[Rfam]
RNA sequence: GGCGGUGUAGCUCAGCUGGCAAGAGUACACGGUUCAUACCCGUGGGGUCGAGGGUUCGAAUCCCUCUGCCGCUA
Numbered sequence: 001g002g003c004g005g006u007g008u009a010g011c012u013c014a015g016c017u018g019g020c021a022a023g024a025g026u027a028c029a030c031g032g033u034u035c036a037u038a039c040c041c042g043u044g045g046g047g048u049c050g051a052g053g054g055u056u057c058g059a060a061u062c063c064c065u066c067u068g069c070c071g072c073u074a
Stems, first nucleotide, its partner, number of pairs: 001073007010026004028044005050066005
The record is a 74-nucleotide RNA from Candidatus Phytoplasma solani, which matches "tRNA" in Rfam. Clan: tRNA clan. It scores 60 bits against the family's covariance model. Transfer RNA (tRNA) molecules are approximately 80 nucleotides in length.